The family of this 91-nucleotide sequence from Callipepla squamata is "Retrovirus direct repeat 1 (dr1)".
The source organism's lineage runs through Eukaryota, Eumetazoa, Galliformes, Odontophoridae and Callipepla.
The family's consensus secondary structure is taken from published work.
From the family's description: This family represents the direct repeat 1 (dr1) element commonly found in the 3' UTR of Avian sarcoma, Rous sarcoma and Avian leukosis viruses (Alpharetroviruses and Avian type C retroviruses). dr1 is required for efficient viral replication and is thought to be involved in genomic RNA packaging although this may not be its only role.
The family's RNA type in Rfam is cis-regulatory element.
Rfam links the family to the GO term viral genome replication.
A search with the family's covariance model found it, with a score of 60 bits.
[Rfam]
RNA sequence: UGUAACGGGGCAAGGCUUACUUGAGAGGACAACAGCAUGCAUAGGCGAGAUGUGGGGAUAUCGGGAUGUACAUGGGUAGGGUCCUCUCAAG
Numbered sequence: 001u002g003u004a005a006c007g008g009g010g011c012a013a014g015g016c017u018u019a020c021u022u023g024a025g026a027g028g029a030c031a032a033c034a035g036c037a038u039g040c041a042u043a044g045g046c047g048a049g050a051u052g053u054g055g056g057g058a059u060a061u062c063g064g065g066a067u068g069u070a071c072a073u074g075g076g077u078a079g080g081g082u083c084c085u086c087u088c089a090a091g
Stems, first nucleotide, its partner, number of pairs: 001012003023088008042078002046074002052069003